[Rfam]
RNA sequence: UCGGCCCCGGUUCACGCCCCCGCAGCCCGCGAUGGCGACCCGGUGCC
Numbered sequence: 001u002c003g004g005c006c007c008c009g010g011u012u013c014a015c016g017c018c019c020c021c022g023c024a025g026c027c028c029g030c031g032a033u034g035g036c037g038a039c040c041c042g043g044u045g046c047c
Stems, first nucleotide, its partner, number of pairs: 003047003007043004015037004021031003
Source information:
L31-Actinobacteria ribosomal protein leader: a 47-nucleotide RNA from Streptomyces sp. NRRL WC-3774. The source organism's lineage runs through Bacteria, Actinomycetota, Kitasatosporales, Streptomycetaceae and Streptomyces. It is one of the family's seed sequences.